[Rfam]
The record is a 76-nucleotide RNA, which matches "S6-S18-Chlorobi ribosomal protein leader" in Rfam. The sequence is in the family's curated seed alignment. Pairs were carried over by alignment from the consensus structure, which is taken from published work.

RNA sequence: AUGCAAAUGGUGUUUGUGGGUUUCCAUGAAGCCGUGGGGCAGGGAUUGCGCAAUACCUGUACCCCGCCAUUUGCCA
Numbered sequence: 001a002u003g004c005a006a007a008u009g010g011u012g013u014u015u016g017u018g019g020g021u022u023u024c025c026a027u028g029a030a031g032c033c034g035u036g037g038g039g040c041a042g043g044g045a046u047u048g049c050g051c052a053a054u055a056c057c058u059g060u061a062c063c064c065c066g067c068c069a070u071u072u073g074c075c076a
Base pairs, nucleotide, nucleotide: 003074004073005072006071007070008069009068010067011066012065013030014029015028016027017026018025019024036064037063038062040059041058042057043056